Source information
Rfam assigns this 64-nucleotide RNA sequence to the family "S15-Flavobacteria ribosomal protein leader". Rfam's curators put it in the seed alignment. Pairs were carried over by alignment from the consensus structure, which is taken from published work. The family's RNA type in Rfam is cis-regulatory leader. On this family, see Eckert and Weinberg, BMC Microbiol 2020: "Discovery of 20 novel ribosomal leader candidates in bacteria and archaea".
RNA sequence: UAUAUUUGCCGCUUGACAGAAAAACUGUCUGUACAUAAAAAUCAUUAAAAUUAAUAUUGGAAUG
Numbered sequence: 001u002a003u004a005u006u007u008g009c010c011g012c013u014u015g016a017c018a019g020a021a022a023a024a025c026u027g028u029c030u031g032u033a034c035a036u037a038a039a040a041a042u043c044a045u046u047a048a049a050a051u052u053a054a055u056a057u058u059g060g061a062a063u064g
Base pairs, nucleotide, nucleotide: 015029016028017027018026019025